[Rfam]
RNA sequence: CAGCACUUGAUACUAACCGAGCUAUCUAUAUCCUGGCUUUAUAUCUAAAGCUUGUGAUAUGUUGUGAUAGUUGGGUUGAAGAAGUGCAAUAUUAAAGCAAAAGCCAUGAGAUCAUUAAGCCCAUUGUGUAAAGAUGCACUCUGAGUUAUAACUCAAAGGCACAACU
Number, nucleotide and partner (000 for none) at each position: 001c000002a000003g087004c086005a085006c084007u083008u082009g000010a000011u000012a000013c000014u000015a077016a076017c075018c074019g000020a072021g071022c070023u069024a068025u067026c066027u061028a060029u059030a058031u057032c056033c054034u000035g052036g051037c050038u049039u048040u047041a000042u000043a000044u000045c000046u000047a040048a039049a038050g037051c036052u035053u000054g033055u000056g032057a031058u030059a029060u028061g027062u000063u000064g000065u000066g026067a025068u024069a023070g022071u021072u020073g000074g018075g017076u016077u015078g000079a000080a000081g000082a008083a007084g006085u005086g004087c003088a000089a000090u000091a000092u000093u000094a000095a000096a000097g000098c000099a000100a000101a000102a000103g160104c159105c158106a000107u000108g000109a000110g000111a000112u000113c000114a000115u000116u000117a000118a000119g000120c000121c000122c000123a000124u000125u138126g137127u136128g135129u134130a000131a000132a000133g000134a129135u128136g127137c126138a125139c000140u157141c000142u155143g154144a153145g152146u151147u000148a000149u000150a000151a146152c145153u144154c143155a142156a000157a140158g105159g104160c103161a000162c000163a000164a000165c000166u000

Rfam assigns this 166-nucleotide RNA from Cavia porcellus to the family "Small Cajal body specific RNA 1". Its family is annotated with RNA processing, nucleolus and Cajal body in the Gene Ontology. The base pairs follow the family's consensus structure, which was predicted with RNAalifold.